[Rfam]
Background: c-di-AMP riboswitch aptamer (ydaO/yuaA leader): a 157-nucleotide RNA from Streptomyces coelicolor. Rfam's curators put it in the seed alignment.
Nucleotides: 157
Base pairs, nucleotide, nucleotide: 011143012142013141014140018029019028020027030138031137032136033135034134035133040049041048050123051122052121058098059097060096061095101117102116103115104114
Number, partner (000 for none) and nucleotide at each position: 001000c002000g003000u004000g005000c006000g007000c008000a009000c010000g011143c012142g013141c014140c015000g016000a017000a018029u019028c020027c021000c022000g023000c024000a025000a026000g027020g028019g029018a030138a031137c032136c033135g034134g035133g036000g037000a038000a039000c040049c041048a042000c043000c044000a045000c046000a047000u048041u049040g050123g051122g052121g053000u054000g055000a056000a057000u058098c059097g060096g061095g062000c063000g064000u065000a066000u067000g068000c069000c070000g071000c072000c073000g074000u075000g076000g077000g078000a079000a080000c081000a082000c083000g084000g085000u086000c087000g088000g089000c090000a091000g092000g093000c094000a095061c096060c097059c098058g099000u100000a101117g102116g103115a104114g105000a106000c107000c108000u109000u110000c111000c112000u113000g114104c115103u116102c117101c118000g119000a120000a121052c122051c123050c124000g125000u126000c127000a128000g129000c130000u131000a132000a133035c134034c135033c136032g137031g138030u139000a140014g141013g142012c143011g144000a145000a146000a147000g148000g149000a150000a151000g152000g153000a154000a155000a156000g157000g